The family of this 166-nucleotide RNA sequence from Cytobacillus depressus is "glmS glucosamine-6-phosphate activated ribozyme aptamer". Lineage of the source: Bacteria > Bacilli > Caryophanales > Bacillaceae > Cytobacillus. Rfam classes the family as a riboswitch.

RNA sequence: AUAAAAAUGAAAGCGCCUGGACUAAUCCUCGAGCGAAGUGGAUUAGUUGACGAGGAGGAGGUUUAUCGAAGUUUUCGGCGGAUACCUCCCGGUUCAAAGCAAACCGUGAUCUCAUCUUUAAAACAUUAGGGCAACUUAAUGCACAAAGAGAUGGGAAUGCUAUGAA
Numbered sequence: 001a002u003a004a005a006a007a008u009g010a011a012a013g014c015g016c017c018u019g020g021a022c023u024a025a026u027c028c029u030c031g032a033g034c035g036a037a038g039u040g041g042a043u044u045a046g047u048u049g050a051c052g053a054g055g056a057g058g059a060g061g062u063u064u065a066u067c068g069a070a071g072u073u074u075u076c077g078g079c080g081g082a083u084a085c086c087u088c089c090c091g092g093u094u095c096a097a098a099g100c101a102a103a104c105c106g107u108g109a110u111c112u113c114a115u116c117u118u119u120a121a122a123a124c125a126u127u128a129g130g131g132c133a134a135c136u137u138a139a140u141g142c143a144c145a146a147a148g149a150g151a152u153g154g155g156a157a158u159g160c161u162a163u164g165a166a
Stems, first nucleotide, its partner, number of pairs: 020048008057089005066078004090106005110156007124141007